[Rfam]
RNA sequence: UUCCUCGGUCAGUUUUGCUGCUUUGCAUCCCGCUUAAACAAAUGUUUGCUGUGCAAAUCCAUGCAAAACUGACUGAGCAA
Numbered sequence: 001u002u003c004c005u006c007g008g009u010c011a012g013u014u015u016u017g018c019u020g021c022u023u024u025g026c027a028u029c030c031c032g033c034u035u036a037a038a039c040a041a042a043u044g045u046u047u048g049c050u051g052u053g054c055a056a057a058u059c060c061a062u063g064c065a066a067a068a069c070u071g072a073c074u075g076a077g078c079a080a
Base pairs, nucleotide, nucleotide: 004077005076006075007074008073009072010071011070012069013068014067015066016065017064018063020060022057023056024055025054026053027052028051032049033048
Annotation: A member of the RNA family "mir-19 microRNA precursor family" from Salmo salar, 80 nucleotides long. The literature on the family includes a 2002 paper in Genes Dev by Mourelatos et al., "miRNPs: a novel class of ribonucleoproteins containing numerous microRNAs". Rfam links the family to the GO terms miRNA-mediated post-transcriptional gene silencing and RISC complex. Pairs were carried over by alignment from the consensus structure, which was predicted with RNAalifold.